[Rfam]
Selenocysteine transfer RNA: a 93-nucleotide RNA from Thermanaerosceptrum fracticalcis. NCBI's taxonomy places the organism under Bacteria, Bacillati, Bacillota, Clostridia, Thermanaerosceptrum. The match comes from Rfam's covariance-model search (70 bits).
RNA sequence: GGGGGCGGAUUGUGACUGGUGUUGCGCCUGGUCUUCAAAACCAGUGUGGCGGAGCGCUCCUCCGCUGGGUGGGUUCGAUUCCUACACGCUCCC
Numbered sequence: 001g002g003g004g005g006c007g008g009a010u011u012g013u014g015a016c017u018g019g020u021g022u023u024g025c026g027c028c029u030g031g032u033c034u035u036c037a038a039a040a041c042c043a044g045u046g047u048g049g050c051g052g053a054g055c056g057c058u059c060c061u062c063c064g065c066u067g068g069g070u071g072g073g074u075u076c077g078a079u080u081c082c083u084a085c086a087c088g089c090u091c092c093c
Stems, first nucleotide, its partner, number of pairs: 001093007008085001011026006028044005047067005070084004
Dot-bracket structure: ((((((((..((((((....)))))).(((((.......)))))..(((((...........)))))..((((.......))))).)))))))